This 199-nucleotide sequence from Medicago truncatula belongs to the Rfam family "MIR2619 microRNA precursor family".
Taxonomically the source falls in Medicago (Eukaryota, Viridiplantae, Streptophytina, Embryophyta).
Gene Ontology terms of the family: miRNA-mediated post-transcriptional gene silencing and RISC complex.
The base pairs follow the family's consensus structure, which was predicted with RNAalifold.
[Rfam]
RNA sequence: AAACAGCCUCAUAUGUAUUGGAUCUUUAACAGUUAUGGUCCCCAAGACCACUUUUGACUUAGUCUUCACUGACGUGGCACCCACAAUGGUCGACAUGUGGCAUCUCACUUAAGGGAUGUGGGUGCCACAUCAGCAAAGACUAAGUCAAAAAUGGCAUUGGGGGCCAAAACUACUAAAGAUCCAAUACAUAGGGUUGUUU
Numbered sequence: 001a002a003a004c005a006g007c008c009u010c011a012u013a014u015g016u017a018u019u020g021g022a023u024c025u026u027u028a029a030c031a032g033u034u035a036u037g038g039u040c041c042c043c044a045a046g047a048c049c050a051c052u053u054u055u056g057a058c059u060u061a062g063u064c065u066u067c068a069c070u071g072a073c074g075u076g077g078c079a080c081c082c083a084c085a086a087u088g089g090u091c092g093a094c095a096u097g098u099g100g101c102a103u104c105u106c107a108c109u110u111a112a113g114g115g116a117u118g119u120g121g122g123u124g125c126c127a128c129a130u131c132a133g134c135a136a137a138g139a140c141u142a143a144g145u146c147a148a149a150a151a152u153g154g155c156a157u158u159g160g161g162g163g164c165c166a167a168a169a170c171u172a173c174u175a176a177a178g179a180u181c182c183a184a185u186a187c188a189u190a191g192g193g194u195u196g197u198u199u
Stems, first nucleotide, its partner, number of pairs: 001199002004196005012190017031171004036166010072130001075127008